[Rfam]
RNA sequence: AGUAUCACACUAACUGAAGCACUGACUUGAUGUCUAAAUACAGUAAGUGCGUUUUGUUGGUGUGGUGUAG
Numbered sequence: 001a002g003u004a005u006c007a008c009a010c011u012a013a014c015u016g017a018a019g020c021a022c023u024g025a026c027u028u029g030a031u032g033u034c035u036a037a038a039u040a041c042a043g044u045a046a047g048u049g050c051g052u053u054u055u056g057u058u059g060g061u062g063u064g065g066u067g068u069a070g
Stems, first nucleotide, its partner, number of pairs: 004066008013057002016054002019050005025044003